[Rfam]
RNA sequence: CACAGAGUAAGUAGUCUGCGUUAAGUGUGUGUGGAUGGGAUGUUGCCACACAACGAAACCAUUGGUGCGGUAGACUAUUGCAUCCGCUGUC
Numbered sequence: 001c002a003c004a005g006a007g008u009a010a011g012u013a014g015u016c017u018g019c020g021u022u023a024a025g026u027g028u029g030u031g032u033g034g035a036u037g038g039g040a041u042g043u044u045g046c047c048a049c050a051c052a053a054c055g056a057a058a059c060c061a062u063u064g065g066u067g068c069g070g071u072a073g074a075c076u077a078u079u080g081c082a083u084c085c086g087c088u089g090u091c
Base pairs, nucleotide, nucleotide: 002090003089004088005087010079011078012077013076014075015074016073017072018071019069020068021067025054026053028052029051030050031049032048033047034046038085039084040083041082042081058066059065060064
The family of this 91-nucleotide RNA from Streptococcus danieliae is "THF (Tetrahydrofolate) riboswitch aptamer". The literature on the family includes a 2010 paper in Chem Biol by Ames et al., "A eubacterial riboswitch class that senses the coenzyme tetrahydrofolate". About the family: Tetrahydrofolate (THF) riboswitch was first reported for Ames et al. as an RNA motif in 5' untranslated (5'-UTR)regions of folate transport and biosynthesis genes in Firmicutes genomes. The family has 101 seed sequences and 747 matches in Rfam 15.1. Taxonomically the source falls in Streptococcus (Bacteria, Bacillati, Bacillota, Bacilli).